[Rfam]
RNA sequence: GCAUGUUGGCAGUGUUGUUAGCUGGUUGUGUGGCUACAUUGUAUAUACGACCGCUAUCGGCACUGCAAUUAUGA
Numbered sequence: 001g002c003a004u005g006u007u008g009g010c011a012g013u014g015u016u017g018u019u020a021g022c023u024g025g026u027u028g029u030g031u032g033g034c035u036a037c038a039u040u041g042u043a044u045a046u047a048c049g050a051c052c053g054c055u056a057u058c059g060g061c062a063c064u065g066c067a068a069u070u071a072u073g074a
Stems, first nucleotide, its partner, number of pairs: 002073004009066001011064007019056003023053010